[Rfam]
This 246-nucleotide sequence from Giardia duodenalis belongs to the Rfam family "Nuclear RNase P". The base pairs follow the family's consensus structure, which is taken from published work.
RNA sequence: AGGAAUUAGGAGGGGCGCCACCGACCGCGGUCGGGGGAAGGUCUGAGGUCAUUUUCCGUGAGGGAGGCGCGCCAACGCGUGCAGCAGUCGCACCAGAAACCAAGAGCCUCUGUGCUUAUGCCAGGAGGAGGGCCUUGCCCGACUGAGAGUGCUCGCUGAAAGAGGCUGCGACGCGGGUUAUUCAGUUCGAUGCGCCCAGGCUGACGGUAGGACGCCUAACCCGAUUCAGACUACUCCUUGGUUCCU
Numbered sequence: 001a002g003g004a005a006u007u008a009g010g011a012g013g014g015g016c017g018c019c020a021c022c023g024a025c026c027g028c029g030g031u032c033g034g035g036g037g038a039a040g041g042u043c044u045g046a047g048g049u050c051a052u053u054u055u056c057c058g059u060g061a062g063g064g065a066g067g068c069g070c071g072c073c074a075a076c077g078c079g080u081g082c083a084g085c086a087g088u089c090g091c092a093c094c095a096g097a098a099a100c101c102a103a104g105a106g107c108c109u110c111u112g113u114g115c116u117u118a119u120g121c122c123a124g125g126a127g128g129a130g131g132g133c134c135u136u137g138c139c140c141g142a143c144u145g146a147g148a149g150u151g152c153u154c155g156c157u158g159a160a161a162g163a164g165g166c167u168g169c170g171a172c173g174c175g176g177g178u179u180a181u182u183c184a185g186u187u188c189g190a191u192g193c194g195c196c197c198a199g200g201c202u203g204a205c206g207g208u209a210g211g212a213c214g215c216c217u218a219a220c221c222c223g224a225u226u227c228a229g230a231c232u233a234c235u236c237c238u239u240g241g242u243u244c245c246u
Base pairs, nucleotide, nucleotide: 001246002245003244004243008239009238010237014197015196019192021034022033023032024031025030043229044228045227046226047225048172049171050170053066054065055064056063057062067082068081069080070079071078072077084169085168086167087166088165089164104154105153199217200216202214203213205211
Dot-bracket structure: ((((...(((...[[...[.(((((....)))))........((((((((..(((((....)))))((((((....)))))).((((((..............((...............................................)).........)))))))))...................]...]].((.((.(.....).)).)).......))))).......)))...))))
The sequence is in the family's curated seed alignment. Ribonuclease P (RNase P) is a ubiquitous endoribonuclease, found in archaea, bacteria and eukarya as well as chloroplasts and mitochondria. Its best characterised activity is the generation of mature 5'-ends of tRNAs by cleaving the 5'-leader elements of precursor-tRNAs. Gene Ontology terms of the family: tRNA processing, ribonuclease P complex and ribonuclease P activity. By type it is a ribozyme.